[Rfam]
RNA sequence: UUCUUAUUGGAUGAUGACUGUCAUGUGUCAUGUUCUCAUUGGAUGUCGAAUCCAUGGAAGAUGAAAUGCAUUGUUAUUGUCAUUGGCCAACCAGAACAUGAUACGUGACAGUCAAUAAGA
Numbered sequence: 001u002u003c004u005u006a007u008u009g010g011a012u013g014a015u016g017a018c019u020g021u022c023a024u025g026u027g028u029c030a031u032g033u034u035c036u037c038a039u040u041g042g043a044u045g046u047c048g049a050a051u052c053c054a055u056g057g058a059a060g061a062u063g064a065a066a067u068g069c070a071u072u073g074u075u076a077u078u079g080u081c082a083u084u085g086g087c088c089a090a091c092c093a094g095a096a097c098a099u100g101a102u103a104c105g106u107g108a109c110a111g112u113c114a115a116u117a118a119g120a
Stems, first nucleotide, its partner, number of pairs: 020109004025104002029100003033096004039090002
Rfam assigns this 120-nucleotide RNA from Glycine max to the family "MIR1520 microRNA precursor family". Its family is annotated with RISC complex and miRNA-mediated post-transcriptional gene silencing in the Gene Ontology. Lineage of the source: Eukaryota > Euphyllophyta > Magnoliopsida > Gunneridae > Glycine subgen. Soja. The match comes from Rfam's covariance-model search (112 bits).